A member of the RNA family "Flavo-1 RNA" from Christiangramia flava, 128 nucleotides long. The family's RNA type in Rfam is small RNA. It scores 45 bits against the family's covariance model.

[Rfam]
RNA sequence: AUUUUGCGUUAGGGAUAGCAGCGGAAAUUCUUUAAAGGUAUUGCGAGCGAAGGCGAGAAAUUACACAGUAAUUUUGAGCUAAAGCGAAAAAUCAUCUUUAAAGAUUGAAGCGAAUAGCCCGCCGCGAC
Numbered sequence: 001a002u003u004u005u006g007c008g009u010u011a012g013g014g015a016u017a018g019c020a021g022c023g024g025a026a027a028u029u030c031u032u033u034a035a036a037g038g039u040a041u042u043g044c045g046a047g048c049g050a051a052g053g054c055g056a057g058a059a060a061u062u063a064c065a066c067a068g069u070a071a072u073u074u075u076g077a078g079c080u081a082a083a084g085c086g087a088a089a090a091a092u093c094a095u096c097u098u099u100a101a102a103g104a105u106u107g108a109a110g111c112g113a114a115u116a117g118c119c120c121g122c123c124g125c126g127a128c
Stems, first nucleotide, its partner, number of pairs: 012120003016116002021111002026106004032101008
The source organism's lineage runs through Bacteria, Pseudomonadati, Bacteroidota, Flavobacteriaceae and Christiangramia flava.